Background
The family of this 103-nucleotide sequence from Bacilli bacterium VT-13-104 is "SAM riboswitch aptamer (S box leader)". Gene Ontology term of the family: regulation of gene expression. The SAM riboswitch is found upstream of a number of genes which code for proteins involved in methionine or cysteine biosynthesis in Gram-positive bacteria. The family's consensus secondary structure is taken from published work.
RNA sequence: AACUUAUCAAGAGUGACCGAGGGAUUGGCCCAAUGACGUCCGGCAACCCCCUUAUGGGAAGGUGCCAAGUCCAACAGAAUGAUCACAUUCUGGAAGAUAAGCG
Numbered sequence: 001a002a003c004u005u006a007u008c009a010a011g012a013g014u015g016a017c018c019g020a021g022g023g024a025u026u027g028g029c030c031c032a033a034u035g036a037c038g039u040c041c042g043g044c045a046a047c048c049c050c051c052u053u054a055u056g057g058g059a060a061g062g063u064g065c066c067a068a069g070u071c072c073a074a075c076a077g078a079a080u081g082a083u084c085a086c087a088u089u090c091u092g093g094a095a096g097a098u099a100a101g102c103g
Stems, first nucleotide, its partner, number of pairs: 003101006013041001015040003021031003025074004042066004047062002049058003070095001075092006